[Rfam]
RNA sequence: UAAGCAUCGAUGAUGACUUACUUCCUUUGUUAUCCUUGCACUAUGAUUGCUAGUGAUGAAACUUAUAGGGACAGUUCAAUCUGAGAUGCUC
Numbered sequence: 001u002a003a004g005c006a007u008c009g010a011u012g013a014u015g016a017c018u019u020a021c022u023u024c025c026u027u028u029g030u031u032a033u034c035c036u037u038g039c040a041c042u043a044u045g046a047u048u049g050c051u052a053g054u055g056a057u058g059a060a061a062c063u064u065a066u067a068g069g070g071a072c073a074g075u076u077c078a079a080u081c082u083g084a085g086a087u088g089c090u091c
Stems, first nucleotide, its partner, number of pairs: 003090006
RNA: Small nucleolar RNA snoR26